[Rfam]
Rfam assigns this 134-nucleotide RNA from Psychromonas algicola to the family "Ribosomal S15 leader". The family is grouped with related families in Rfam's "Ribosomal Protein S15 Leader clan". By type it is a cis-regulatory leader. From the family's description: The E. coli Ribosomal S15 gene 5' UTR can form two alternative structures. A reference for the family is Benard et al. (1996), "Pseudoknot and translational control in the expression of the S15 ribosomal protein", Biochimie.
RNA sequence: CUUUAUCGCUGAAUUAGUGAUCGGCGAUAAUAAUUUAAAUAGGUUAUUCACAUAACCAAAAAAUAUCGGAGUACGUUAUGUCACUAAGUGCAGAACAGAAAGCUGAGAUUGUAGCAAAAUUUGGUCGCGCAGAA
Numbered sequence: 001c002u003u004u005a006u007c008g009c010u011g012a013a014u015u016a017g018u019g020a021u022c023g024g025c026g027a028u029a030a031u032a033a034u035u036u037a038a039a040u041a042g043g044u045u046a047u048u049c050a051c052a053u054a055a056c057c058a059a060a061a062a063a064u065a066u067c068g069g070a071g072u073a074c075g076u077u078a079u080g081u082c083a084c085u086a087a088g089u090g091c092a093g094a095a096c097a098g099a100a101a102g103c104u105g106a107g108a109u110u111g112u113a114g115c116a117a118a119a120u121u122u123g124g125u126c127g128c129g130c131a132g133a134a
Stems, first nucleotide, its partner, number of pairs: 007026006047088002068085002071082001